Notes:
T-box leader: a 209-nucleotide RNA sequence from Bacillus anthracis. On this family, see Grundy et al., RNA 2000: "tRNA determinants for transcription antitermination of the Bacillus subtilis tyrS gene".
RNA sequence: CGAAAAGCGAUGAAAGAGAAGAGUACAUAUUCAAAACUUUUCAGAGAGCUGAUAUGUGGUGGAAAUCAGUAAGGGAUGAAUAUGGAAUGGGCUCUGGAGCUUCUAACUGAAAUGAGUAGGUAAAGACGGUUGCUUCACGUUAAGAAGUUGAAGUGAGCUAUUCAUGAUAGCUAAUUAAGGUGGUACCGCGGGAGUCUCUCGUCCUUUUU
Numbered sequence: 001c002g003a004a005a006a007g008c009g010a011u012g013a014a015a016g017a018g019a020a021g022a023g024u025a026c027a028u029a030u031u032c033a034a035a036a037c038u039u040u041u042c043a044g045a046g047a048g049c050u051g052a053u054a055u056g057u058g059g060u061g062g063a064a065a066u067c068a069g070u071a072a073g074g075g076a077u078g079a080a081u082a083u084g085g086a087a088u089g090g091g092c093u094c095u096g097g098a099g100c101u102u103c104u105a106a107c108u109g110a111a112a113u114g115a116g117u118a119g120g121u122a123a124a125g126a127c128g129g130u131u132g133c134u135u136c137a138c139g140u141u142a143a144g145a146a147g148u149u150g151a152a153g154u155g156a157g158c159u160a161u162u163c164a165u166g167a168u169a170g171c172u173a174a175u176u177a178a179g180g181u182g183g184u185a186c187c188g189c190g191g192g193a194g195u196c197u198c199u200c201g202u203c204c205u206u207u208u209u
Stems, first nucleotide, its partner, number of pairs: 007100002015095004026084006037073003048070006103125002106121003127139002156172007177206004188202005

Rfam classes the family as a cis-regulatory leader.